[Rfam]
RNA sequence: AGAGUUGGCGAGGUAGUUGCAAAUUUGUUCUUAGAGACAAGUUUGAGGAAAGUCUGGACUCCCGAAAGACCAUACUUGCUGGGUAAUUCCCAGUGCGAGCGAUCGCGAGGAUAGUGCCACAGAAAAAUACCGCCAAGAAUAUUGGUAAGGGUGCAAAGGUGCGGUAAGAGCGCACCAGCAGUAUCGAGAGGUACUGGCUCGGUAAACCCCGGUAGGGAGCAAGGUCGGAGGGAUUAUGGUUGGUCUUUUUCCCAUCCCAAUGUUGGCGGUGAGGGAUGCUGCUCAAGCAGUUUGUUCAAUCACCGCCUUGGUGAACCGCAAGAGAUGUUUGGCAACAAACACCCUAGAUAGAUAACUACCCUCGAAUCAAAAUUACUUGUCAAAGUUAUUCAAGUUCGAGAACAGAAUCCAGCUUACGUUCUAACUCUCUCU
Numbered sequence: 001a002g003a004g005u006u007g008g009c010g011a012g013g014u015a016g017u018u019g020c021a022a023a024u025u026u027g028u029u030c031u032u033a034g035a036g037a038c039a040a041g042u043u044u045g046a047g048g049a050a051a052g053u054c055u056g057g058a059c060u061c062c063c064g065a066a067a068g069a070c071c072a073u074a075c076u077u078g079c080u081g082g083g084u085a086a087u088u089c090c091c092a093g094u095g096c097g098a099g100c101g102a103u104c105g106c107g108a109g110g111a112u113a114g115u116g117c118c119a120c121a122g123a124a125a126a127a128u129a130c131c132g133c134c135a136a137g138a139a140u141a142u143u144g145g146u147a148a149g150g151g152u153g154c155a156a157a158g159g160u161g162c163g164g165u166a167a168g169a170g171c172g173c174a175c176c177a178g179c180a181g182u183a184u185c186g187a188g189a190g191g192u193a194c195u196g197g198c199u200c201g202g203u204a205a206a207c208c209c210c211g212g213u214a215g216g217g218a219g220c221a222a223g224g225u226c227g228g229a230g231g232g233a234u235u236a237u238g239g240u241u242g243g244u245c246u247u248u249u250u251c252c253c254a255u256c257c258c259a260a261u262g263u264u265g266g267c268g269g270u271g272a273g274g275g276a277u278g279c280u281g282c283u284c285a286a287g288c289a290g291u292u293u294g295u296u297c298a299a300u301c302a303c304c305g306c307c308u309u310g311g312u313g314a315a316c317c318g319c320a321a322g323a324g325a326u327g328u329u330u331g332g333c334a335a336c337a338a339a340c341a342c343c344c345u346a347g348a349u350a351g352a353u354a355a356c357u358a359c360c361c362u363c364g365a366a367u368c369a370a371a372a373u374u375a376c377u378u379g380u381c382a383a384a385g386u387u388a389u390u391c392a393a394g395u396u397c398g399a400g401a402a403c404a405g406a407a408u409c410c411a412g413c414u415u416a417c418g419u420u421c422u423a424a425c426u427c428u429c430u431c432u
Base pairs, nucleotide, nucleotide: 001428002427003426004425005424006423007422008421010419012360013359014358015357016356017355018354020045021044022043023042024041025040026039027038028037050415051414052413054412055411056410057409058408059219060218061217062216071287073214074213075212077211078210079093080092081091082090083089094108095106096105097104098103109209110208114207115206116203117202118201130150131149132146133145134144135143136142158176159175160174161173162172163171178198179196180195181194182193183192184191185190223317224316225315231304232303324343326341327340328339329338330337331336
This 432-nucleotide sequence from Pleurocapsales cyanobacterium LEGE 10410 belongs to the Rfam family "Bacterial RNase P class A". The organism belongs to Pleurocapsales, within Bacteria. It scores 244 bits against the family's covariance model. By type it is a ribozyme. Gene Ontology terms of the family: tRNA processing, ribonuclease P activity and dimeric ribonuclease P complex.